[Rfam]
RNA: Small nucleolar RNA SNORD11B
Organism: Notamacropus eugenii
RNA sequence: UGAUGGCAAUGAUGAUUUUAUAUUGAUUCUCACCUGAUAUAUAAAUAUGAGGGUUUACAGUCACUACCUCAUCUGAUGCCAUCU
Numbered sequence: 001u002g003a004u005g006g007c008a009a010u011g012a013u014g015a016u017u018u019u020a021u022a023u024u025g026a027u028u029c030u031c032a033c034c035u036g037a038u039a040u041a042u043a044a045a046u047a048u049g050a051g052g053g054u055u056u057a058c059a060g061u062c063a064c065u066a067c068c069u070c071a072u073c074u075g076a077u078g079c080c081a082u083c084u
Stems, first nucleotide, its partner, number of pairs: 002083006